Nucleotides: 218
Stems, first nucleotide, its partner, number of pairs: 001202001003200001008028002030198006040073001074183003082154008157177004
Number, partner (000 for none) and nucleotide at each position: 001202g002000a003200c004000g005000a006000a007000g008028u009027c010000c011000c012000g013000c014000a015000g016000c017000a018000c019000c020000c021000g022000c023000c024000c025000u026000c027009g028008g029000a030198g031197c032196c033195g034194g035193g036000g037000a038000c039000c040073c041000a042000a043000c044000a045000g046000a047000u048000c049000a050000c051000g052000c053000g054000c055000a056000c057000c058000a059000c060000g061000c062000g063000c064000a065000g066000g067000u068000c069000c070000c071000c072000c073040g074183g075182g076181g077000u078000g079000a080000a081000u082154c083153g084152g085151c086150c087149a088148c089147c090000a091000c092000a093000a094000c095000c096000a097000c098000g099000a100000g101000c102000g103000a104000a105000c106000g107000c108000g109000a110000c111000c112000a113000c114000a115000c116000g117000c118000c119000a120000c121000g122000c123000g124000u125000g126000u127000g128000c129000g130000c131000c132000g133000u134000c135000c136000c137000c138000g139000u140000g141000c142000g143000u144000g145000c146000c147089g148088g149087u150086g151085g152084c153083c154082g155000u156000a157177g158176g159175g160174c161000g162000a163000a164000u165000u166000c167000c168000c169000c170000u171000u172000c173000c174160g175159c176158c177157c178000g179000a180000a181076c182075c183074c184000g185000u186000c187000a188000g189000c190000u191000a192000a193035c194034c195033c196032g197031g198030u199000a200003g201000g202001c203000g204000g205000c206000c207000g208000a209000a210000g211000g212000a213000g214000a215000g216000g217000c218000a